The family of this 374-nucleotide sequence from Weissella paramesenteroides is "Bacterial RNase P class B". Its Rfam clan is "RNaseP clan". The base pairs follow the family's consensus structure, which is taken from published work. Taxonomically the source falls in Weissella paramesenteroides (Bacteria, Bacillati, Lactobacillales, Lactobacillaceae). Rfam classes the family as a ribozyme. Rfam describes the family as follows. Ribonuclease P (RNase P) is a ubiquitous endoribonuclease, found in archaea, bacteria and eukarya as well as chloroplasts and mitochondria.

[Rfam]
RNA sequence: GUUGGUGGGUAAUUGCGUGUGGCUUAUGCUGCAUGAGGAAAGUCCAUGCUCGCACUAACUGUGAUGUUAGUAGUGUUCGCGCUAGCUGAAAAAAUAAGGCUAGGUAUUCAAUUAACUUGAAUGACGGCCAGUGAAAAAUCUAAGGACUUUGUCUAUGAUCUAGUAACUGUUAAGGUGCCACAGUGACGAACCAUCAAAGAAAUGCGAUGGGUGGAACGCGGUAAACCCCACGAGCGGGCAACCCAAACUUUGGUAGGGGCGCUUGACCUAACAAAAAGAAGUGAUGGUCGGGGAAACAGAAAUGUUUGAGAUAGAUGAUUACCACCAAAUAAAAAUUGCCAACUUUUAUUUGGAACAAAACAUGGCUUACAGCU
Numbered sequence: 001g002u003u004g005g006u007g008g009g010u011a012a013u014u015g016c017g018u019g020u021g022g023c024u025u026a027u028g029c030u031g032c033a034u035g036a037g038g039a040a041a042g043u044c045c046a047u048g049c050u051c052g053c054a055c056u057a058a059c060u061g062u063g064a065u066g067u068u069a070g071u072a073g074u075g076u077u078c079g080c081g082c083u084a085g086c087u088g089a090a091a092a093a094a095u096a097a098g099g100c101u102a103g104g105u106a107u108u109c110a111a112u113u114a115a116c117u118u119g120a121a122u123g124a125c126g127g128c129c130a131g132u133g134a135a136a137a138a139u140c141u142a143a144g145g146a147c148u149u150u151g152u153c154u155a156u157g158a159u160c161u162a163g164u165a166a167c168u169g170u171u172a173a174g175g176u177g178c179c180a181c182a183g184u185g186a187c188g189a190a191c192c193a194u195c196a197a198a199g200a201a202a203u204g205c206g207a208u209g210g211g212u213g214g215a216a217c218g219c220g221g222u223a224a225a226c227c228c229c230a231c232g233a234g235c236g237g238g239c240a241a242c243c244c245a246a247a248c249u250u251u252g253g254u255a256g257g258g259g260c261g262c263u264u265g266a267c268c269u270a271a272c273a274a275a276a277a278g279a280a281g282u283g284a285u286g287g288u289c290g291g292g293g294a295a296a297c298a299g300a301a302a303u304g305u306u307u308g309a310g311a312u313a314g315a316u317g318a319u320u321a322c323c324a325c326c327a328a329a330u331a332a333a334a335a336u337u338g339c340c341a342a343c344u345u346u347u348a349u350u351u352g353g354a355a356c357a358a359a360a361c362a363u364g365g366c367u368u369a370c371a372g373c374u
Stems, first nucleotide, its partner, number of pairs: 004374003007370001008323007016035006040368003044365005049238005054071006077233003081229001082103006104125001105123006126228002129169004138159003144154003175226002177222003191210005198203001242258003262292007294307005325353009